A member of the RNA family "Glutamine riboswitch aptamer (glnA leader)" from Petrachloros mirabilis, 101 nucleotides long. Rfam links the family to the GO term glutamine binding.

[Rfam]
Nucleotides: 101
Base pairs, nucleotide, nucleotide: 003097004096005095006094007093009068010067011066013064014063015062016061017060018059071098077088078087079086
Number, partner (000 for none) and nucleotide at each position: 001000a002000u003097c004096g005095u006094u007093c008000a009068u010067c011066c012000c013064c014063u015062u016061c017060g018059a019000g020000a021000g022000a023000g024000a025000g026000c027000u028000a029000g030000a031000g032000u033000u034000a035000a036000a037000u038000c039000u040000a041000a042000g043000u044000u045000c046000a047000u048000u049000u050000c051000a052000a053000g054000u055000u056000g057000c058000a059018u060017c061016g062015a063014a064013g065000c066011g067010g068009a069000c070000g071098g072000a073000a074000g075000u076000a077088g078087g079086g080000a081000u082000u083000c084000u085000u086079c087078c088077c089000g090000a091000a092000g093007g094006a095005a096004c097003g098071c099000g100000c101000c
The literature on the family includes a 2011 paper in RNA Biol by Ames and Breaker, "Bacterial aptamers that selectively bind glutamine". Lineage of the source: Bacteria > Bacillati > Cyanobacteriota > Petrachloros > Petrachloros mirabilis.